[Rfam]
This 233-nucleotide part of an RNA belongs to the Rfam family "Bacterial large subunit ribosomal RNA". It scores 2278 bits against the family's covariance model.

Nucleotides: 233
Stems, first nucleotide, its partner, number of pairs: 005090013020047004026041002051058002061073004093231002100221006109197003113193007120185001122154004129146006158182003162179005199209003
Number, partner (000 for none) and nucleotide at each position: 001000g002000a003000c004000u005090c006089a007088u008087a009086g010085g011084c012083a013082g014081u015080g016079g017078c018000u019000u020047g021046g022045u023044u024000a025000a026041g027040g028000g029000a030000a031000c032000g033000g034000a035000a036000c037000c038000c039000a040027c041026c042000g043000g044023a045022g046021c047020c048000g049000u050000a051058g052057c053000g054000a055000a056000a057052g058051c059000g060000a061073g062072u063071c064070u065000u066000c067000a068000u069000a070064g071063g072062g073061c074000g075000a076000u077000u078017g079016u080015c081014a082013c083012u084011g085010c086009u087008u088007a089006u090005g091000g092000a093231c094230c095000c096000a097000a098000a099000c100221c101220u102219g103218g104217g105216u106000g107000a108000u109197c110196u111195a112000u113193c114192c115191a116190u117189g118188a119187c120185c121000a122154g123153g124152a125151u126000g127000a128000a129146g130145c131144u132143u133142g134141g135000a136000u137000g138000a139000a140000a141134c142133u143132a144131a145130g146129c147000a148000g149000a150000g151125g152124u153123c154122c155000g156000a157000a158182c159181c160180g161000a162179c163178u164177g165176a166175u167000g168000u169000u170000g171000a172000a173000g174000a175166a176165u177164c178163a179162g180160c181159g182158g183000a184000u185120g186000a187119g188118u189117u190116g191115u192114g193113g194000u195111u196110a197109g198000g199209g200208g201207u202000g203000a204000a205000a206000u207201g208200c209199c210000a211000c212000u213000c214000g215000a216105a217104c218103c219102c220101a221100g222000a223000g224000c225000u226000a227000g228000c229000u230094g231093g232000u233000u